The family of this 79-nucleotide RNA sequence from Photinus pyralis is "mir-981 microRNA precursor family". On this family, see Legeai et al., BMC Genomics 2010: "Bioinformatic prediction, deep sequencing of microRNAs and expression analysis during phenotypic plasticity in the pea aphid, Acyrthosiphon pisum". Rfam links the family to the GO terms miRNA-mediated post-transcriptional gene silencing and RISC complex. It scores 62 bits against the family's covariance model.
RNA sequence: UCUCCUAUGCUACGGGUUUCGAGGCAUCGUAACCGAUUUUGAACAGGUUCGUUGUCGACGAAACCUGCACGAUAUGAGA
Numbered sequence: 001u002c003u004c005c006u007a008u009g010c011u012a013c014g015g016g017u018u019u020c021g022a023g024g025c026a027u028c029g030u031a032a033c034c035g036a037u038u039u040u041g042a043a044c045a046g047g048u049u050c051g052u053u054g055u056c057g058a059c060g061a062a063a064c065c066u067g068c069a070c071g072a073u074a075u076g077a078g079a
Stems, first nucleotide, its partner, number of pairs: 001079004006074001013067009031049004